[Rfam]
RNA sequence: AGCUUGUUGAUGAUGUUUCUUAUUUAAAAUGUCCGAACACGUGAACUCCAUAGUGAUUUCAGUGCAUUACUGAGAGAAGCU
Numbered sequence: 001a002g003c004u005u006g007u008u009g010a011u012g013a014u015g016u017u018u019c020u021u022a023u024u025u026a027a028a029a030u031g032u033c034c035g036a037a038c039a040c041g042u043g044a045a046c047u048c049c050a051u052a053g054u055g056a057u058u059u060c061a062g063u064g065c066a067u068u069a070c071u072g073a074g075a076g077a078a079g080c081u
Stems, first nucleotide, its partner, number of pairs: 002080004007075002
Shown here is an 81-nucleotide RNA sequence from Himantopus himantopus, a member of the family "Small nucleolar RNA SNORD72". Rfam's curators write: snoRNA HBII-240 belongs to the CD family of snoRNAs. It is the human orthologue of the mouse MBII-240 and is predicted to guide 2'O-ribose methylation of the large 28S rRNA at residue U4590. The family's RNA type in Rfam is C/D-box small nucleolar RNA. Rfam links the family to the GO terms RNA processing and nucleolus. It scores 65 bits against the family's covariance model.